The record is a 141-nucleotide sequence from Oreotrochilus melanogaster, which matches "Small nucleolar RNA SNORA12" in Rfam. Rfam links the family to the GO terms nucleolus and RNA processing. The family's consensus secondary structure was predicted with RNAalifold. Taxonomically the source falls in Oreotrochilus (Eukaryota, Deuterostomia, Amniota, Theropoda). U108 belongs to the H/ACA family of snoRNAs.
RNA sequence: UAUUGUGGUGGUUUCUGUAUUUGGCAGAUCUGUAACUGUAUCUGACUGGCCUUAAACUACCACAAAGAUCAAAAAGGAGAUGGCUGCGCUGAGAACUUUUUCAAGCUUUUAGUUUUCAGCUUUUUGUUAUCUCCUACAGAA
Numbered sequence: 001u002a003u004u005g006u007g008g009u010g011g012u013u014u015c016u017g018u019a020u021u022u023g024g025c026a027g028a029u030c031u032g033u034a035a036c037u038g039u040a041u042c043u044g045a046c047u048g049g050c051c052u053u054a055a056a057c058u059a060c061c062a063c064a065a066a067g068a069u070c071a072a073a074a075a076g077g078a079g080a081u082g083g084c085u086g087c088g089c090u091g092a093g094a095a096c097u098u099u100u101u102c103a104a105g106c107u108u109u110u111a112g113u114u115u116u117c118a119g120c121u122u123u124u125u126g127u128u129a130u131c132u133c134c135u136a137c138a139g140a141a
Base pairs, nucleotide, nucleotide: 005063006062007061008060009059010058011057023051024050025049027047029045030044032042076134077133078132079131080130081129104124105123